[Rfam]
RNA sequence: CUUCAACGAGCCGAGCCAGAGCGGCUGUUCGGCGGUCCGCUCGCGGCCGUAGGUGGCCAGCAGGGCCUGCGCCUC
Numbered sequence: 001c002u003u004c005a006a007c008g009a010g011c012c013g014a015g016c017c018a019g020a021g022c023g024g025c026u027g028u029u030c031g032g033c034g035g036u037c038c039g040c041u042c043g044c045g046g047c048c049g050u051a052g053g054u055g056g057c058c059a060g061c062a063g064g065g066c067c068u069g070c071g072c073c074u075c
Base pairs, nucleotide, nucleotide: 014026015025016024017023032070033069038065045058047056048055049054

ASpks TB sRNA: a 75-nucleotide RNA from Streptomyces sp. FH025. Rfam 15.1 lists 9,052 matches to the family in 683 species. The base pairs follow the family's consensus structure, which is taken from published work.